[Rfam]
The family of this 107-nucleotide sequence from Allolucifera butyrica is "PyrR binding site". A search with the family's covariance model found it, with a score of 55 bits. The source organism's lineage runs through Bacteria, Bacillota, Negativicutes, Veillonellales and Allolucifera. For this family Rfam cites "Molecular recognition of pyr mRNA by the Bacillus subtilis attenuation regulatory protein PyrR" (Bonner et al., Nucleic Acids Res, 2001). The base pairs follow the family's consensus structure, which is taken from published work.
Nucleotides: 107
Stems, first nucleotide, its partner, number of pairs: 004036005014029005038067005046061001049058003073100011
Number, partner (000 for none) and nucleotide at each position: 001000a002000a003000a004036g005035c006034c007033u008032u009000u010000a011000a012000g013000g014029c015028g016027g017026u018025c019000c020000a021000g022000a023000g024000a025018g026017g027016c028015c029014g030000g031000c032008a033007a034006g035005g036004u037000g038067c039066a040065u041064a042063g043000u044000a045000c046061g047000u048000g049058g050057u051056g052000u053000a054000u055000g056051u057050a058049c059000g060000u061046c062000c063042u064041u065040a066039u067038g068000c069000c070000c071000u072000u073100a074099a075098c076097c077096u078095c079094u080093u081092g082091u083090c084000c085000u086000u087000u088000u089000a090083g091082g092081c093080a094079a095078g096077a097076g098075g099074u100073u101000u102000u103000a104000u105000u106000a107000u